[Rfam]
This 110-nucleotide RNA from Sporosarcina luteola belongs to the Rfam family "SAM riboswitch aptamer (S box leader)". Taxonomically the source falls in Sporosarcina (Bacteria, Bacillota, Bacilli, Caryophanaceae). Clan: SAM clan. It scores 98 bits against the family's covariance model.
RNA sequence: UUCUUAUCAAGAGAAGCCGAGGGACUGGCCCGUCGAAGCUUCAGCAACCAACCGUUAUUGCCGGUAAGGUGCUAAUUCCAGCAGGUCGCUAGCGGCCUGGCAGAUGAGAA
Numbered sequence: 001u002u003c004u005u006a007u008c009a010a011g012a013g014a015a016g017c018c019g020a021g022g023g024a025c026u027g028g029c030c031c032g033u034c035g036a037a038g039c040u041u042c043a044g045c046a047a048c049c050a051a052c053c054g055u056u057a058u059u060g061c062c063g064g065u066a067a068g069g070u071g072c073u074a075a076u077u078c079c080a081g082c083a084g085g086u087c088g089c090u091a092g093c094g095g096c097c098u099g100g101c102a103g104a105u106g107a108g109a110a
Stems, first nucleotide, its partner, number of pairs: 001110008013042005021031003025081004043073004048069002051065004077102001082099006